[Rfam]
RNA sequence: UCUAAUCGACGCGACUGGCGCAGUUGGGUGGGAGCGACCACCAGGGAGCGAAAGGAGCGGAGGCCGUGCGCCUGGGUCUUCGCA
Numbered sequence: 001u002c003u004a005a006u007c008g009a010c011g012c013g014a015c016u017g018g019c020g021c022a023g024u025u026g027g028g029u030g031g032g033a034g035c036g037a038c039c040a041c042c043a044g045g046g047a048g049c050g051a052a053a054g055g056a057g058c059g060g061a062g063g064c065c066g067u068g069c070g071c072c073u074g075g076g077u078c079u080u081c082g083c084a
Base pairs, nucleotide, nucleotide: 003057006054010050011049012048015045016044017072018071019070020069021068028041029040030039031038061079062078063077064076065075

Rfam assigns this 84-nucleotide RNA from Nonomuraea pusilla to the family "ZMP/ZTP riboswitch aptamer (pfl RNA motif)". The source organism's lineage runs through Bacteria, Actinomycetota, Streptosporangiales, Streptosporangiaceae and Nonomuraea. The match comes from Rfam's covariance-model search (45 bits). Gene Ontology terms of the family: regulation of purine nucleotide biosynthetic process and one-carbon metabolic process.